[Rfam]
RNA sequence: UUGGCAGCAACAAGAAAGUGCUUGAGUUAAUUGAGUUUAUUUAAGCGCUGAUACAAUGCUGCCAGAAGAAUUUCAAUGCCAAGAACAGUUCAGUUUGAUUCAGUUUACAAACUGGUCUACACGUGGCCAAACAUUC
Numbered sequence: 001u002u003g004g005c006a007g008c009a010a011c012a013a014g015a016a017a018g019u020g021c022u023u024g025a026g027u028u029a030a031u032u033g034a035g036u037u038u039a040u041u042u043a044a045g046c047g048c049u050g051a052u053a054c055a056a057u058g059c060u061g062c063c064a065g066a067a068g069a070a071u072u073u074c075a076a077u078g079c080c081a082a083g084a085a086c087a088g089u090u091c092a093g094u095u096u097g098a099u100u101c102a103g104u105u106u107a108c109a110a111a112c113u114g115g116u117c118u119a120c121a122c123g124u125g126g127c128c129a130a131a132c133a134u135u136c
Stems, first nucleotide, its partner, number of pairs: 004062006017049010028039003078127004087118002090115008

Drosophila small cajal body-specific RNA PsiU2-38.40.4: a 136-nucleotide sequence from Drosophila elegans. Pairs were carried over by alignment from the consensus structure, which was predicted with RNAfold. Lineage of the source: Eukaryota > Eumetabola > Panorpida > Ephydroidea > elegans subgroup (in: flies). A reference for the family is Deryusheva and Gall (2013), "Novel small Cajal-body-specific RNAs identified in Drosophila: probing guide RNA function", RNA.